[Rfam]
RNA: Trypanosomatid snoRNA TB9Cs4H2
Organism: Strigomonas culicis
RNA sequence: AGGACCACCAGCUACCACACAGAGUAUUUAUUCUUAGUCUUUGUGAAUGGUCGUUCUUCUGGGCCAAGAAUA
Numbered sequence: 001a002g003g004a005c006c007a008c009c010a011g012c013u014a015c016c017a018c019a020c021a022g023a024g025u026a027u028u029u030a031u032u033c034u035u036a037g038u039c040u041u042u043g044u045g046a047a048u049g050g051u052c053g054u055u056c057u058u059c060u061g062g063g064c065c066a067a068g069a070a071u072a
Stems, first nucleotide, its partner, number of pairs: 002065002005062003014051003018045007